Shown here is a 136-nucleotide RNA sequence from Macleaya cordata, a member of the family "mir-166 microRNA precursor family". The match comes from Rfam's covariance-model search (78 bits). A reference for the family is Ambros (2001), "microRNAs: tiny regulators with great potential", Cell. The family has 31 seed sequences and 2,599 matches in Rfam 15.1. Lineage of the source: Eukaryota > Viridiplantae > Papaveraceae > Papaveroideae > Macleaya. This family represents the plant microRNA (miRNA) precursor mir-166.
[Rfam]
RNA sequence: GUUGUGGGGAAUGUUGGCUGGCUCGAGGCUUUCACUCUUCUAUUGAUCUACUUUUGCAGAUUGAAUGCAUGAUGAUGAUGAUGAUGAUGAUUCUCAUGAUCAUGAAGGCAUCGGACCAGGCUUCAUUCCCCUCAAA
Numbered sequence: 001g002u003u004g005u006g007g008g009g010a011a012u013g014u015u016g017g018c019u020g021g022c023u024c025g026a027g028g029c030u031u032u033c034a035c036u037c038u039u040c041u042a043u044u045g046a047u048c049u050a051c052u053u054u055u056g057c058a059g060a061u062u063g064a065a066u067g068c069a070u071g072a073u074g075a076u077g078a079u080g081a082u083g084a085u086g087a088u089g090a091u092u093c094u095c096a097u098g099a100u101c102a103u104g105a106a107g108g109c110a111u112c113g114g115a116c117c118a119g120g121c122u123u124c125a126u127u128c129c130c131c132u133c134a135a136a
Stems, first nucleotide, its partner, number of pairs: 002135003006131008016121001018119004024113003